[Rfam]
RNA sequence: AACAACCGCAUAAAAACUUUUCGUAUAAUCCCAAGAAUCGGCUUGGGAGUCUCUACUCGGUCACCGUAAAUGAUCAGGCUACGAAGAGAGUGGAAGCGAUU
Numbered sequence: 001a002a003c004a005a006c007c008g009c010a011u012a013a014a015a016a017c018u019u020u021u022c023g024u025a026u027a028a029u030c031c032c033a034a035g036a037a038u039c040g041g042c043u044u045g046g047g048a049g050u051c052u053c054u055a056c057u058c059g060g061u062c063a064c065c066g067u068a069a070a071u072g073a074u075c076a077g078g079c080u081a082c083g084a085a086g087a088g089a090g091u092g093g094a095a096g097c098g099a100u101u
Stems, first nucleotide, its partner, number of pairs: 018087008029048007057077001059075005

The family of this 101-nucleotide RNA from Paenibacillus nanensis is "Purine riboswitch aptamer". Its family is annotated with purine nucleobase biosynthetic process in the Gene Ontology. About the family: Riboswitches are metabolite binding domains within certain messenger RNAs that serve as precision sensors for their corresponding targets.